Annotation
Shown here is a 99-nucleotide sequence, a member of the family "malK-III RNA".

[Rfam]
RNA sequence: GGACCCGAUGCCACGUACGGGGCUCGUCGACGGCGCGAUUCUUCGCGCCGAGAUGCAGGAGCCCGCGAUGGGAUCACCUCCGGGAGGAGUACAUCCGUG
Numbered sequence: 001g002g003a004c005c006c007g008a009u010g011c012c013a014c015g016u017a018c019g020g021g022g023c024u025c026g027u028c029g030a031c032g033g034c035g036c037g038a039u040u041c042u043u044c045g046c047g048c049c050g051a052g053a054u055g056c057a058g059g060a061g062c063c064c065g066c067g068a069u070g071g072g073a074u075c076a077c078c079u080c081c082g083g084g085a086g087g088a089g090u091a092c093a094u095c096c097g098u099g
Stems, first nucleotide, its partner, number of pairs: 014067003020064006026054003033048006